[Rfam]
RNA sequence: CAAUAAGACCAUUCACUACGGAUCGUCCGGCACGUACCUGCCGGUGAAGGGAUUGAUAA
Numbered sequence: 001c002a003a004u005a006a007g008a009c010c011a012u013u014c015a016c017u018a019c020g021g022a023u024c025g026u027c028c029g030g031c032a033c034g035u036a037c038c039u040g041c042c043g044g045u046g047a048a049g050g051g052a053u054u055g056a057u058a059a
Base pairs, nucleotide, nucleotide: 009051010050012048013047014046015045027044028043029042030041031040032039